[Rfam]
RNA sequence: UGAUGGCUGUUCCUCUCACUACUUUAAACCGUGGGUAGUGGGAUUUAGUCCAUCAUAGAGCAAGCAGAUUUGUUUUCACCCAGAGCACCAUGCGGAUAGCUUGCCUAUCUGAUAGUGACUCCUGGUUUUUGCAAGUCUGACAGUU
Number, nucleotide and partner (000 for none) at each position: 001u055002g054003a053004u052005g051006g050007c000008u048009g000010u000011u000012c000013c000014u043015c042016u041017c040018a039019c000020u037021a036022c035023u034024u000025u000026a000027a000028a000029c000030c000031g000032u000033g000034g023035g022036u021037a020038g000039u018040g017041g016042g015043a014044u000045u000046u000047a000048g008049u000050c006051c005052a004053u003054c002055a001056u000057a000058g000059a000060g000061c000062a000063a000064g000065c000066a000067g137068a136069u135070u134071u133072g132073u000074u000075u000076u000077c000078a000079c000080c125081c124082a123083g122084a120085g119086c117087a116088c115089c000090a000091u000092g000093c000094g110095g109096a108097u107098a106099g000100c000101u000102u000103g000104c000105c000106u098107a097108u096109c095110u094111g000112a000113u000114a000115g088116u087117g086118a000119c085120u084121c000122c083123u082124g081125g080126u000127u000128u000129u000130u000131g000132c072133a071134a070135g069136u068137c067138u000139g000140a000141c000142a000143g000144u000145u000

Shown here is a 145-nucleotide sequence from Cervus hanglu, a member of the family "Small nucleolar RNA SNORA79". The source organism's lineage runs through Eukaryota, Craniata, Gnathostomata, Artiodactyla and Cervus hanglu. Its family is annotated with nucleolus and RNA processing in the Gene Ontology. By type it is an H/ACA-box small nucleolar RNA. About the family: ACA65 (SNORA79) is a member of the H/ACA class of snoRNAs that guide the sites of modification of uridines to pseudouridines. This snoRNA was identified by computational screening and its expression in mouse experimentally verified by Northern blot and primer extension analysis. The base pairs follow the family's consensus structure, which was predicted with RNAalifold.